Shown here is a 115-nucleotide RNA sequence from Trifolium medium, a member of the family "MIR2593 microRNA precursor family". The family's consensus secondary structure was predicted with RNAalifold.

RNA sequence: AUAUAAGCAAAAGUGCAUCUUUUAGAUUCAUUGAAUAACUGAUGUAUGUGGACUAUAAUACAGACCAGAUACAUCAGUUAUUCAAUGAGUCUAAAAAGUGCACUUUUGCUUAUAU
Numbered sequence: 001a002u003a004u005a006a007g008c009a010a011a012a013g014u015g016c017a018u019c020u021u022u023u024a025g026a027u028u029c030a031u032u033g034a035a036u037a038a039c040u041g042a043u044g045u046a047u048g049u050g051g052a053c054u055a056u057a058a059u060a061c062a063g064a065c066c067a068g069a070u071a072c073a074u075c076a077g078u079u080a081u082u083c084a085a086u087g088a089g090u091c092u093a094a095a096a097a098g099u100g101c102a103c104u105u106u107u108g109c110u111u112a113u114a115u
Stems, first nucleotide, its partner, number of pairs: 002114006009107005015101004020096006027089018049067003